[Rfam]
RNA sequence: GCGCAGGGACGACCCUGCGCGCUUUCCCAUUGCGGGGACGGCCCU
Numbered sequence: 001g002c003g004c005a006g007g008g009a010c011g012a013c014c015c016u017g018c019g020c021g022c023u024u025u026c027c028c029a030u031u032g033c034g035g036g037g038a039c040g041g042c043c044c045u
Stems, first nucleotide, its partner, number of pairs: 001020008034045004
Record summary:
Rfam assigns this 45-nucleotide RNA sequence from Rhodanobacter thiooxydans to the family "Guanidine-II riboswitch aptamer (mini-ykkC)". The base pairs follow the family's consensus structure, which is taken from published work. A search with the family's covariance model found it, with a score of 43 bits. The organism belongs to Rhodanobacter, within Bacteria. Simpler in structure and has fewer highly conserved nucleotide positions than the ykkC-yxkD leader. Despite this each of its two stem-loop structures directly bind free guanidine.